[Rfam]
RNA sequence: UGUUGUCCAGAGCUCUUUUCUUGUUGGACUACUGGAAAUUAUGAUGAGCAGUGCAAUAUUAAAAGGGCAUUGGCUGGCA
Numbered sequence: 001u002g003u004u005g006u007c008c009a010g011a012g013c014u015c016u017u018u019u020c021u022u023g024u025u026g027g028a029c030u031a032c033u034g035g036a037a038a039u040u041a042u043g044a045u046g047a048g049c050a051g052u053g054c055a056a057u058a059u060u061a062a063a064a065g066g067g068c069a070u071u072g073g074c075u076g077g078c079a
Stems, first nucleotide, its partner, number of pairs: 001079003005074001007073004012068008022058005028052003

Rfam assigns this 79-nucleotide sequence from Microcaecilia unicolor to the family "mir-130 microRNA precursor family". The base pairs follow the family's consensus structure, which was predicted with PFOLD. A reference for the family is Houbaviy et al. (2003), "Embryonic stem cell-specific MicroRNAs", Dev Cell.